[Rfam]
RNA sequence: CUUUGUUUCUUGCUUUAGCAAAAGCAAGUGGUGCGGAUGGGGAUUUUCUUCCCGCUCAGGACUUAGUUAUUACCUGGCUAAACAAAAUAACUUGGCGUGCAUGUGU
Numbered sequence: 001c002u003u004u005g006u007u008u009c010u011u012g013c014u015u016u017a018g019c020a021a022a023a024g025c026a027a028g029u030g031g032u033g034c035g036g037a038u039g040g041g042g043a044u045u046u047u048c049u050u051c052c053c054g055c056u057c058a059g060g061a062c063u064u065a066g067u068u069a070u071u072a073c074c075u076g077g078c079u080a081a082a083c084a085a086a087a088u089a090a091c092u093u094g095g096c097g098u099g100c101a102u103g104u105g106u
Stems, first nucleotide, its partner, number of pairs: 009028007038054003042050002056077004065092006
RNA: wcaG RNA